[Rfam]
RNA sequence: AGAAUAUAAGAACCCGACUCUUAACUUUUAACUGAAAAAGUUAAGAGUCGGCUCUUAACUUUUUAAGAGCCGACUCUUAACUUUUUAAGAGCCGACUCUUAACUUUUUCAGUUAAAAGUUAAGAGUCGGGUUCUUAUAUUCU
Numbered sequence: 001a002g003a004a005u006a007u008a009a010g011a012a013c014c015c016g017a018c019u020c021u022u023a024a025c026u027u028u029u030a031a032c033u034g035a036a037a038a039a040g041u042u043a044a045g046a047g048u049c050g051g052c053u054c055u056u057a058a059c060u061u062u063u064u065a066a067g068a069g070c071c072g073a074c075u076c077u078u079a080a081c082u083u084u085u086u087a088a089g090a091g092c093c094g095a096c097u098c099u100u101a102a103c104u105u106u107u108u109c110a111g112u113u114a115a116a117a118g119u120u121a122a123g124a125g126u127c128g129g130g131u132u133c134u135u136a137u138a139u140u141c142u
Base pairs, nucleotide, nucleotide: 001142002141003140004139005138006137007136008135009134010133011132012131013130014129015128016127017126018125019124020123021122022121023120024119025118026117027116028115029114030113031112032111033110034109035108036107037106038105039104041102042101043100044099045098046097047096048095049094050093051092052091053090054089055088056087057086058085
This 142-nucleotide RNA from Brassica oleracea belongs to the Rfam family "MIR9563 microRNA precursor family". The match comes from Rfam's covariance-model search (110 bits). Rfam links the family to the GO terms miRNA-mediated post-transcriptional gene silencing and RISC complex. The organism belongs to Brassica oleracea, within Eukaryota.